[Rfam]
RNA sequence: GAACUUUAUAAGACACCUAUUCGUAUAUCUUCGGCAAUAAGGGCCGGAGGUCUCUACAAGGAACCGAUAAUUCCUGGCUACGAAUGGACGGAUUUUCCGU
Numbered sequence: 001g002a003a004c005u006u007u008a009u010a011a012g013a014c015a016c017c018u019a020u021u022c023g024u025a026u027a028u029c030u031u032c033g034g035c036a037a038u039a040a041g042g043g044c045c046g047g048a049g050g051u052c053u054c055u056a057c058a059a060g061g062a063a064c065c066g067a068u069a070a071u072u073c074c075u076g077g078c079u080a081c082g083a084a085u086g087g088a089c090g091g092a093u094u095u096u097c098c099g100u
Stems, first nucleotide, its partner, number of pairs: 018086008029049007059075005
The record is a 100-nucleotide RNA from Paenibacillus lutrae, which matches "Purine riboswitch aptamer" in Rfam. Taxonomically the source falls in Paenibacillus (Bacteria, Bacillati, Caryophanales, Paenibacillaceae). Its family is annotated with purine nucleobase biosynthetic process in the Gene Ontology. The match comes from Rfam's covariance-model search (70 bits). Riboswitches are metabolite binding domains within certain messenger RNAs that serve as precision sensors for their corresponding targets. Pairs were carried over by alignment from the consensus structure, which is taken from published work.